[Rfam]
RNA sequence: AUCGUUCAUCUCUUGGUAGUCUUUGAUUCUCGCAUACCAAAAUGACUACUAAAAGACGGAAGUAGGGACUUCUCCCGAAGGAACGCGCC
Numbered sequence: 001a002u003c004g005u006u007c008a009u010c011u012c013u014u015g016g017u018a019g020u021c022u023u024u025g026a027u028u029c030u031c032g033c034a035u036a037c038c039a040a041a042a043u044g045a046c047u048a049c050u051a052a053a054a055g056a057c058g059g060a061a062g063u064a065g066g067g068a069c070u071u072c073u074c075c076c077g078a079a080g081g082a083a084c085g086c087g088c089c
Base pairs, nucleotide, nucleotide: 003085004084005083006082007081009056010055011054013052014051015050016049017048018047019046020045021044059086065076066075067074
The record is an 89-nucleotide sequence from Planktothrix agardhii, which matches "Glutamine riboswitch aptamer (glnA leader)" in Rfam.
For this family Rfam cites "Structural and Dynamic Basis for Low-Affinity, High-Selectivity Binding of L-Glutamine by the Glutamine Riboswitch" (Ren et al., Cell Rep, 2015).
Rfam links the family to the GO term glutamine binding.